Record summary: Shown here is a 79-nucleotide sequence from Hermetia illucens, a member of the family "drz-agam-1 ribozyme". On this family, see Webb et al., Science 2009: "Widespread occurrence of self-cleaving ribozymes". NCBI's taxonomy places the organism under Eukaryota, Panarthropoda, Hexapoda, Stratiomyidae, Hermetia.
RNA sequence: UACUACCAAACCCUAUCUCCACCUCCACGUGGUGACCGCUGGGAGCUUCUUCUUAACGAAAAGCUGCGGAAGGAGCAGG
Numbered sequence: 001u002a003c004u005a006c007c008a009a010a011c012c013c014u015a016u017c018u019c020c021a022c023c024u025c026c027a028c029g030u031g032g033u034g035a036c037c038g039c040u041g042g043g044a045g046c047u048u049c050u051u052c053u054u055a056a057c058g059a060a061a062a063g064c065u066g067c068g069g070a071a072g073g074a075g076c077a078g079g
Stems, first nucleotide, its partner, number of pairs: 012079003016075001018073002021033003044065005050059001052058001